RNA sequence: AAAAAGGGCCAGUUGGCUAUAUAUGCCAUGCAUGGUUUAGGCCGUGCACUGUAUGGACAUCAAGACACAUGGCUGGCAAAAUUUCUAAACUCUUCAAUAGGGUUGACACACUUUGCCGACCCUUAAA
Number, nucleotide and partner (000 for none) at each position: 001a000002a000003a000004a000005a000006g000007g000008g077009c076010c075011a074012g073013u000014u028015g027016g026017c025018u000019a000020u000021a000022u000023a000024u000025g017026c016027c015028a014029u048030g047031c046032a045033u044034g043035g042036u041037u000038u000039a000040g000041g036042c035043c034044g033045u032046g031047c030048a029049c072050u071051g070052u069053a000054u067055g066056g000057a000058c000059a000060u000061c000062a000063a000064g000065a000066c055067a054068c000069a052070u051071g050072g049073c012074u011075g010076g009077c008078a000079a000080a000081a000082u000083u000084u000085c000086u000087a000088a000089a000090c000091u000092c000093u000094u000095c000096a124097a123098u000099a000100g000101g121102g120103u119104u118105g117106a000107c115108a114109c000110a000111c000112u000113u000114u108115g107116c000117c105118g104119a103120c102121c101122c000123u097124u096125a000126a000127a000
RNA: U11 spliceosomal RNA
Organism: Chara braunii